[Rfam]
Nucleotides: 102
Stems, first nucleotide, its partner, number of pairs: 018088002021085005029049007058078007
Number, partner (000 for none) and nucleotide at each position: 001000a002000u003000g004000a005000a006000u007000a008000u009000u010000g011000u012000u013000g014000a015000a016000u017000u018088c019087c020000g021085u022084c023083g024082u025081a026000u027000a028000a029049u030048c031047c032046c033045g034044g035043g036000a037000a038000u039000a040000u041000g042000g043035c044034u045033c046032g047031g048030g049029a050000g051000u052000u053000u054000c055000u056000a057000c058078c059077a060076a061075g062074c063073u064072a065000c066000c067000g068000u069000a070000a071000a072064u073063a074062g075061c076060u077059u078058g079000a080000c081025u082024a083023c084022g085021a086000g087019g088018g089000a090000u091000g092000c093000g094000g095000g096000a097000u098000c099000g100000g101000a102000g
A member of the RNA family "Purine riboswitch aptamer" from Geobacillus kaustophilus, 102 nucleotides long.
Gene Ontology term of the family: purine nucleobase biosynthetic process.
Taxonomically the source falls in Geobacillus kaustophilus (Bacteria, Bacillati, Bacillota, Bacilli).